This 129-nucleotide sequence from Todus mexicanus belongs to the Rfam family "Small nucleolar RNA SNORA61".
Rfam classes the family as an H/ACA-box small nucleolar RNA.
Rfam's curators write: ACA61 is a member of the H/ACA class of snoRNA that guide the sites of modification of uridines to pseudouridines.
NCBI's taxonomy places the organism under Eukaryota, Eumetazoa, Bilateria, Teleostomi, Todus.
A search with the family's covariance model found it, with a score of 78 bits.
RNA sequence: GCCCUCCAAAUCCCUUUCCCACCAGAUCUGAACACCGAUCUUGUGGUCGAAAAAGGAGGAAAAGCAAAAUUCAGACUGCUCUAGGGCUCUUUGCUGGUGCUGUUCCAUGCGGAGAGGGGUCAGUUGGAA
Numbered sequence: 001g002c003c004c005u006c007c008a009a010a011u012c013c014c015u016u017u018c019c020c021a022c023c024a025g026a027u028c029u030g031a032a033c034a035c036c037g038a039u040c041u042u043g044u045g046g047u048c049g050a051a052a053a054a055g056g057a058g059g060a061a062a063a064g065c066a067a068a069a070u071u072c073a074g075a076c077u078g079c080u081c082u083a084g085g086g087c088u089c090u091u092u093g094c095u096g097g098u099g100c101u102g103u104u105c106c107a108u109g110c111g112g113a114g115a116g117g118g119g120u121c122a123g124u125u126g127g128a129a
Base pairs, nucleotide, nucleotide: 003059004058005057006056007055019046020045021044023043025040026039027038028037076117077116079114080113081112082111091107093105